[Rfam]
RNA: Plastid-rpl20 3UTR RNA
RNA sequence: AUAGAAUUCCCGGAGGGGUAACUCUGGGAAGAUACAAUUAAUUAAGAUUAAGUAGUAGAAAUCAAUGAGCAUGUUGCAAU
Dot-bracket structure: ......(((((((((......)))))))))................................((((......))))....